This 210-nucleotide sequence from Ectocarpus siliculosus belongs to the Rfam family "MIR8622 microRNA precursor family".
Gene Ontology terms of the family: miRNA-mediated post-transcriptional gene silencing and RISC complex.
The family's consensus secondary structure was predicted with RNAalifold.
Lineage of the source: Eukaryota > Sar > Phaeophyceae > Ectocarpales > Ectocarpus.
Rfam 15.1 lists 93 matches to the family in 2 species.
RNA sequence: CCGAAAUCUGCGCCGGAACCAAGCGGCAUCCAACAUUUGUCACAGCCUUGCUCACCGCCGCGGACAGUAAACCCCUGAACCAUGGGUCGUCAGCAGUAGCUGGUGGCAUCAGCUGCUGCUGUAAACCCGCAGUUAGUGGAUUGGAGUCAGUGGCGGCGAGCACGGCUGUGACAAAUGUUGGAUGCCGCUUGGUGCCGGCGCAGAUUUCGG
Numbered sequence: 001c002c003g004a005a006a007u008c009u010g011c012g013c014c015g016g017a018a019c020c021a022a023g024c025g026g027c028a029u030c031c032a033a034c035a036u037u038u039g040u041c042a043c044a045g046c047c048u049u050g051c052u053c054a055c056c057g058c059c060g061c062g063g064a065c066a067g068u069a070a071a072c073c074c075c076u077g078a079a080c081c082a083u084g085g086g087u088c089g090u091c092a093g094c095a096g097u098a099g100c101u102g103g104u105g106g107c108a109u110c111a112g113c114u115g116c117u118g119c120u121g122u123a124a125a126c127c128c129g130c131a132g133u134u135a136g137u138g139g140a141u142u143g144g145a146g147u148c149a150g151u152g153g154c155g156g157c158g159a160g161c162a163c164g165g166c167u168g169u170g171a172c173a174a175a176u177g178u179u180g181g182a183u184g185c186c187g188c189u190u191g192g193u194g195c196c197g198g199c200g201c202a203g204a205u206u207u208c209g210g
Base pairs, nucleotide, nucleotide: 001210002209003208004207005206006205007204008203009202010201011200012199013198014197015196016195018193019192020191021190022189023188024187025186026185027184028183029182030181031180032179033178035176036175037174038173039172040171041170043168044167045166046165047164049162050161051160052159053158055156056155057154058153059152060151061150063148064147065146068143069142070141072139075136076135077134078133080132084128085127086126091121092120093119094118095117096116097115098114099113100112101111